Rfam assigns this 211-nucleotide sequence from Pseudomonas sp. TAD18 to the family "PhrS".
RNA sequence: UUCACACAAACAAACACGCGCAGGAGGCCGUCAUGUUUCUCGAUAAUGUGGUUAUCGCUGGAGUACUUACCGUCGGUCUCAUGGUUUUAUUUUUCGCGGGGUUAGGGAUUUUUAUCUGGAAAGACUCCCAGAAGCGCAAUAAGUAGCGCCGGGUCUUUCGAGUAACGAGCACGCAAGGCAUUUUGGGCGACUUCGGUCGCCUAUUUUUUUG
Number, nucleotide and partner (000 for none) at each position: 001u000002u000003c000004a000005c098006a000007c096008a000009a000010a000011c000012a000013a000014a000015c000016a000017c000018g000019c000020g000021c000022a000023g000024g000025a000026g000027g000028c000029c000030g000031u000032c000033a000034u000035g000036u000037u000038u000039c000040u000041c000042g000043a000044u000045a000046a000047u000048g058049u057050g056051g000052u000053u000054a000055u000056c050057g049058c048059u000060g000061g000062a000063g000064u000065a000066c000067u000068u000069a000070c000071c000072g000073u000074c000075g086076g085077u084078c083079u000080c000081a000082u000083g078084g077085u076086u075087u000088u000089a000090u000091u000092u000093u000094u000095c000096g007097c000098g005099g000100g000101g000102u000103u000104a000105g000106g000107g000108a000109u000110u000111u000112u000113u000114a000115u000116c000117u000118g000119g000120a000121a000122a000123g000124a000125c000126u000127c000128c000129c000130a000131g000132a000133a000134g000135c000136g000137c000138a000139a000140u000141a000142a000143g000144u000145a000146g000147c000148g000149c000150c000151g000152g000153g000154u000155c000156u000157u000158u000159c000160g000161a000162g000163u000164a000165a000166c000167g000168a000169g179170c178171a000172c177173g000174c000175a000176a000177g172178g170179c169180a000181u000182u000183u000184u000185g202186g201187g200188c199189g198190a197191c196192u000193u000194c000195g000196g191197u190198c189199g188200c187201c186202u185203a000204u000205u000206u000207u000208u000209u000210u000211g000
The family's RNA type in Rfam is small RNA. Gene Ontology term of the family: quorum sensing. For this family Rfam cites "Detection of small RNAs in Pseudomonas aeruginosa by RNomics and structure-based bioinformatic tools" (Sonnleitner et al., Microbiology, 2008). NCBI's taxonomy places the organism under Bacteria, Pseudomonadati, Pseudomonadales, Pseudomonadaceae, Pseudomonas.